[Rfam]
Shown here is a 209-nucleotide sequence from Ectocarpus sp. CCAP 1310/34, a member of the family "MIR8622 microRNA precursor family". Rfam links the family to the GO terms RISC complex and miRNA-mediated post-transcriptional gene silencing. The base pairs follow the family's consensus structure, which was predicted with RNAalifold. The organism belongs to Ectocarpus, within Eukaryota.
RNA sequence: CCGAAAUCUGCGCCGGCACCAAGCGGCAUCCAACAUGUGUCAAAGCCAUGCUCGCCGCCACCGACUCCAAUCUCCUGAACUACGGGUACAGCAGUAGCUAAUGGCACCAGCUACUGCUGACACCCCUCCGUUCAGGGGUUUACAGUCCGUGGCGGUGAGCAUGGCUUUGACAAAUGUUGGAUGCCGCUUGGUUCCGGCGCAGAUUUCGG
Numbered sequence: 001c002c003g004a005a006a007u008c009u010g011c012g013c014c015g016g017c018a019c020c021a022a023g024c025g026g027c028a029u030c031c032a033a034c035a036u037g038u039g040u041c042a043a044a045g046c047c048a049u050g051c052u053c054g055c056c057g058c059c060a061c062c063g064a065c066u067c068c069a070a071u072c073u074c075c076u077g078a079a080c081u082a083c084g085g086g087u088a089c090a091g092c093a094g095u096a097g098c099u100a101a102u103g104g105c106a107c108c109a110g111c112u113a114c115u116g117c118u119g120a121c122a123c124c125c126c127u128c129c130g131u132u133c134a135g136g137g138g139u140u141u142a143c144a145g146u147c148c149g150u151g152g153c154g155g156u157g158a159g160c161a162u163g164g165c166u167u168u169g170a171c172a173a174a175u176g177u178u179g180g181a182u183g184c185c186g187c188u189u190g191g192u193u194c195c196g197g198c199g200c201a202g203a204u205u206u207c208g209g
Base pairs, nucleotide, nucleotide: 001209002208003207004206005205006204007203008202009201010200011199012198013197014196015195016194018192019191020190021189022188023187024186025185026184027183028182029181030180031179032178033177035175036174038172039171040170041169043167044166045165046164047163048162049161050160051159052158053157055155056154057153058152059151060150061149063147064146065145066144069141070140072138074136075135076134077133078132079131080130084125085124086123089119090118091117092116093115094114095113096112097111098110099109